[Rfam]
RNA sequence: CGCUUUUUUCGCCCAGGCGGAGCUCGACCGCAAAUAGGCGAUUUGUUGGAUUUUAUUCAUGAACACAAAAUGGUGUAUGGGGUCGAGUCAAUUUGCCGAGUAUUGCCGAUUGCGCCA
Numbered sequence: 001c002g003c004u005u006u007u008u009u010c011g012c013c014c015a016g017g018c019g020g021a022g023c024u025c026g027a028c029c030g031c032a033a034a035u036a037g038g039c040g041a042u043u044u045g046u047u048g049g050a051u052u053u054u055a056u057u058c059a060u061g062a063a064c065a066c067a068a069a070a071u072g073g074u075g076u077a078u079g080g081g082g083u084c085g086a087g088u089c090a091a092u093u094u095g096c097c098g099a100g101u102a103u104u105g106c107c108g109a110u111u112g113c114g115c116c117a
Base pairs, nucleotide, nucleotide: 017031018030019029020028078117079116080115082113089112090111092109093108095106096105098103
RNA: ALIL pseudoknot